[Rfam]
RNA sequence: UCACUUCUACCCGUAGAUCCGAACUUGUGUCCCUUCACAACCACAAGUUUGAUUUUACGGGCUGAUGUGGG
Numbered sequence: 001u002c003a004c005u006u007c008u009a010c011c012c013g014u015a016g017a018u019c020c021g022a023a024c025u026u027g028u029g030u031c032c033c034u035u036c037a038c039a040a041c042c043a044c045a046a047g048u049u050u051g052a053u054u055u056u057a058c059g060g061g062c063u064g065a066u067g068u069g070g071g
Base pairs, nucleotide, nucleotide: 002069003068004067006065007064010061011060012059015056016055017054020051021050022049023048024047025046026045027044028043029042
Dot-bracket structure: .(((.((..(((..(((..((((((((((............))))))))))..)))..)))..)).)))..